[Rfam]
RNA sequence: CGCAAUCGCAUAGCGUGACAACACGCGAAAGUCGUCUGAAAUGCCGGUAUCACCUUUGGGUGUGACGACACUCAGCCGAUGAUGCAAAUGCAUCGACACU
Numbered sequence: 001c002g003c004a005a006u007c008g009c010a011u012a013g014c015g016u017g018a019c020a021a022c023a024c025g026c027g028a029a030a031g032u033c034g035u036c037u038g039a040a041a042u043g044c045c046g047g048u049a050u051c052a053c054c055u056u057u058g059g060g061u062g063u064g065a066c067g068a069c070a071c072u073c074a075g076c077c078g079a080u081g082a083u084g085c086a087a088a089u090g091c092a093u094c095g096a097c098a099c100u
Base pairs, nucleotide, nucleotide: 013026014025015024016023017022032068033067034066035065036064051062052061053060054059080095081094082093083092084091085090